[Rfam]
RNA: T-box leader
Organism: Sporolactobacillus putidus
RNA sequence: CAUAGAGCGUUGAGAGGGAUUAGUAAGCAAAGAAAGAGCGUAAGAGAACGGUGUCCAUUGGCUGAAAGAUGCCGCCGCUUUUUUCCUGCUGAACCUGCCCCUGGAGCUGUCCGGCCAAUAACCGGACCGUCUUUCUUCACGUUACGAAGAUGAGAGAGAGCGUGGGGCAUAACCCGUGCUAACAAAGGUGGUACCGCGGGCAAAGCCACUCCCCGUCCUUUUA
Numbered sequence: 001c002a003u004a005g006a007g008c009g010u011u012g013a014g015a016g017g018g019a020u021u022a023g024u025a026a027g028c029a030a031a032g033a034a035a036g037a038g039c040g041u042a043a044g045a046g047a048a049c050g051g052u053g054u055c056c057a058u059u060g061g062c063u064g065a066a067a068g069a070u071g072c073c074g075c076c077g078c079u080u081u082u083u084u085c086c087u088g089c090u091g092a093a094c095c096u097g098c099c100c101c102u103g104g105a106g107c108u109g110u111c112c113g114g115c116c117a118a119u120a121a122c123c124g125g126a127c128c129g130u131c132u133u134u135c136u137u138c139a140c141g142u143u144a145c146g147a148a149g150a151u152g153a154g155a156g157a158g159a160g161c162g163u164g165g166g167g168c169a170u171a172a173c174c175c176g177u178g179c180u181a182a183c184a185a186a187g188g189u190g191g192u193a194c195c196g197c198g199g200g201c202a203a204a205g206c207c208a209c210u211c212c213c214c215g216u217c218c219u220u221u222u223a
Stems, first nucleotide, its partner, number of pairs: 007107002015102004026090004037079003050073006110126005128141003159180007185220004196216005